Background:
The record is a 70-nucleotide RNA sequence, which matches "tRNA" in Rfam. The family's consensus secondary structure is taken from published work.

[Rfam]
RNA sequence: GUGCGUGUAGAUUAUAUUUGGUAAAAUCGUAAGGCUGUUAACUUUGAGAUGGUGUGUUUGCCCGCGGACG
Numbered sequence: 001g002u003g004c005g006u007g008u009a010g011a012u013u014a015u016a017u018u019u020g021g022u023a024a025a026a027u028c029g030u031a032a033g034g035c036u037g038u039u040a041a042c043u044u045u046g047a048g049a050u051g052g053u054g055u056g057u058u059u060g061c062c063c064g065c066g067g068a069c070g
Stems, first nucleotide, its partner, number of pairs: 001069002004066004010028004030046005051062004